[Rfam]
RNA sequence: GGUCAUGAGCGCCAGCGCCAAGCCCCGGCUCGCUGGCCGGCAACCCUCCUGCUGCGGUGGGGUGCUCCGGGUGAUGACCGGGCUUCCGAGAGCCGGGAGCAAGCGCACGUC
Number, nucleotide and partner (000 for none) at each position: 001g079002g078003u077004c076005a000006u000007g000008a000009g038010c000011g037012c036013c035014a034015g033016c032017g000018c000019c000020a000021a030022g029023c000024c000025c000026c000027g000028g000029c022030u021031c000032g016033c015034u014035g013036g012037c011038c009039g066040g065041c064042a000043a000044c062045c061046c060047u000048c057049c056050u000051g000052c000053u000054g000055c000056g049057g048058u000059g000060g046061g045062g044063u000064g041065c040066u039067c000068c000069g000070g000071g000072u000073g000074a000075u000076g004077a003078c002079c001080g000081g000082g100083c099084u098085u097086c096087c095088g094089a000090g000091a000092g000093c000094c088095g087096g086097g085098a084099g083100c082101a000102a000103g000104c000105g000106c000107a000108c000109g000110u000111c000
RNA: SAM (S-adenosyl methionine) riboswitch aptamer